[Rfam]
RNA sequence: CUGCAUACCAGUAGACCUUAUCUGGUUCUUCUAAUGGCCAGACAAGGGGGAUGGUGCAUGCGACAAAAACCUGGGGUUGCUGCAGGCUGUGGUCAGCCUUGGUGUGACUGGUUGAACGGCCGUACUCCGACAUAC
Numbered sequence: 001c002u003g004c005a006u007a008c009c010a011g012u013a014g015a016c017c018u019u020a021u022c023u024g025g026u027u028c029u030u031c032u033a034a035u036g037g038c039c040a041g042a043c044a045a046g047g048g049g050g051a052u053g054g055u056g057c058a059u060g061c062g063a064c065a066a067a068a069a070c071c072u073g074g075g076g077u078u079g080c081u082g083c084a085g086g087c088u089g090u091g092g093u094c095a096g097c098c099u100u101g102g103u104g105u106g107a108c109u110g111g112u113u114g115a116a117c118g119g120c121c122g123u124a125c126u127c128c129g130a131c132a133u134a135c
Stems, first nucleotide, its partner, number of pairs: 003061004008056001016047004021042004073128004078124001082120002093111004
Dot-bracket structure: ..((((.(.......((((.((((..............)))).))))........).))))...........((((.(...((.........((((...........)))).......))...))))).......
Small nucleolar RNA SNORA58: a 135-nucleotide sequence from Chauna torquata. A search with the family's covariance model found it, with a score of 83 bits. The family has 20 seed sequences and 471 matches in Rfam 15.1. Rfam links the family to the GO terms nucleolus and RNA processing. It is annotated as an H/ACA-box small nucleolar RNA. Rfam's curators write: ACA52 is a member of the H/ACA class of snoRNA that guide the sites of modification of uridines to pseudouridines.